[Rfam]
RNA sequence: ACCAGGGAAGCCGAAAACUGGAGAAUAGAGUAGGCA
Number, nucleotide and partner (000 for none) at each position: 001a000002c021003c020004a019005g018006g000007g000008a000009a000010g035011c034012c033013g000014a000015a000016a000017a000018c005019u004020g003021g002022a000023g000024a000025a000026u000027a000028g000029a000030g000031u000032a000033g012034g011035c010036a000

Rfam assigns this 36-nucleotide RNA sequence from Marinoscillum sp. 108 to the family "DUF805b RNA". The family's consensus secondary structure is taken from published work.